[Rfam]
RNA: Z6 small nucleolar RNA
RNA sequence: UGCUGGUGCUGAAGGUGCCUGUCUGGGAACACAGAGCAUUUCUCGAGGUUUUUGCAGUCAGGAGAGAUUUUACCAUACCAAUUGAGCUCACAGCA
Numbered sequence: 001u002g003c004u005g006g007u008g009c010u011g012a013a014g015g016u017g018c019c020u021g022u023c024u025g026g027g028a029a030c031a032c033a034g035a036g037c038a039u040u041u042c043u044c045g046a047g048g049u050u051u052u053u054g055c056a057g058u059c060a061g062g063a064g065a066g067a068u069u070u071u072a073c074c075a076u077a078c079c080a081a082u083u084g085a086g087c088u089c090a091c092a093g094c095a
Stems, first nucleotide, its partner, number of pairs: 001095004